[Rfam]
RNA sequence: GUCGGUGAUCUGCCGAAUCCAUGCAACAAGGAGGCAUGGAGCCGGGGAACCAGUCGACCUUCGAUGAAGGUCUGGGGUGAAUCGGCGCGCCAAGCGCCGUAGGGCAACUUCCCUGCCCGAAUCCGUCAGCUAACCCGGUAGGCGCAAGCGGAAGACUUU
Numbered sequence: 001g002u003c004g005g006u007g008a009u010c011u012g013c014c015g016a017a018u019c020c021a022u023g024c025a026a027c028a029a030g031g032a033g034g035c036a037u038g039g040a041g042c043c044g045g046g047g048a049a050c051c052a053g054u055c056g057a058c059c060u061u062c063g064a065u066g067a068a069g070g071u072c073u074g075g076g077g078u079g080a081a082u083c084g085g086c087g088c089g090c091c092a093a094g095c096g097c098c099g100u101a102g103g104g105c106a107a108c109u110u111c112c113c114u115g116c117c118c119g120a121a122u123c124c125g126u127c128a129g130c131u132a133a134c135c136c137g138g139u140a141g142g143c144g145c146a147a148g149c150g151g152a153a154g155a156c157u158u159u
Stems, first nucleotide, its partner, number of pairs: 011144004018040007041139006051074002075124003083099004102118004